[Rfam]
Nucleotides: 077
Base pairs, nucleotide, nucleotide: 002075003074004073005072
Number, partner (000 for none) and nucleotide at each position: 001000u002075g003074g004073a005072c006000c007000a008000a009000u010000g011000a012000u013000g014000a015000u016000g017000a018000c019000u020000g021000g022000u023000g024000g025000u026000g027000u028000a029000u030000g031000a032000g033000u034000u035000a036000a037000a038000g039000g040000u041000g042000a043000u044000g045000a046000a047000u048000a049000g050000u051000a052000a053000g054000u055000g056000u057000c058000u059000u060000u061000g062000u063000u064000a065000g066000u067000g068000g069000c070000a071000a072005g073004u074003u075002c076000a077000g